Record summary: A member of the RNA family "mir-7563 microRNA precursor family" from Ameiurus melas, 76 nucleotides long.
RNA sequence: ACCGCAUACUUACAUACUAUAUAGUAGCCUAUAUACAUAUAUUUUGCCUACUAUAUAGUAGGUAAGUAUGCAGUUU
Numbered sequence: 001a002c003c004g005c006a007u008a009c010u011u012a013c014a015u016a017c018u019a020u021a022u023a024g025u026a027g028c029c030u031a032u033a034u035a036c037a038u039a040u041a042u043u044u045u046g047c048c049u050a051c052u053a054u055a056u057a058g059u060a061g062g063u064a065a066g067u068a069u070g071c072a073g074u075u076u
Stems, first nucleotide, its partner, number of pairs: 001074002004071010015060001017058011029046001031044001033042003
The base pairs follow the family's consensus structure, which was predicted with RNAalifold.